[Rfam]
A member of the RNA family "mir-15 microRNA precursor family" from Menidia menidia, 88 nucleotides long.
RNA sequence: GGUGGCUGUACUGUAGCAGCACGUAAAUAUUGGAGUUAAGACUAGAUGAAGUCUCCAGUAUUAAUCGUGCUGCUGAAGCAAAGCUGAC
Numbered sequence: 001g002g003u004g005g006c007u008g009u010a011c012u013g014u015a016g017c018a019g020c021a022c023g024u025a026a027a028u029a030u031u032g033g034a035g036u037u038a039a040g041a042c043u044a045g046a047u048g049a050a051g052u053c054u055c056c057a058g059u060a061u062u063a064a065u066c067g068u069g070c071u072g073c074u075g076a077a078g079c080a081a082a083g084c085u086g087a088c
Stems, first nucleotide, its partner, number of pairs: 001088001003086004014075010024064001026062010
Dot-bracket structure: (.((((.......(((((((((((.((((((((((.................)))))))))).).)))))))))).......)))).)
About this RNA: Rfam describes the family as follows. This family represents the related mir-15a and mir-15b sequences. In humans miR-15a and miR-16 are clustered within 0.5 kb at 13q14. This region has been shown to be deleted in more than half of B cell chronic lymphocytic leukaemias (CLL). The base pairs follow the family's consensus structure, which was predicted with RNAalifold. The source organism's lineage runs through Eukaryota, Euteleosteomorpha, Ovalentaria, Atherinopsidae and Menidia. Rfam links the family to the GO terms miRNA-mediated post-transcriptional gene silencing and RISC complex.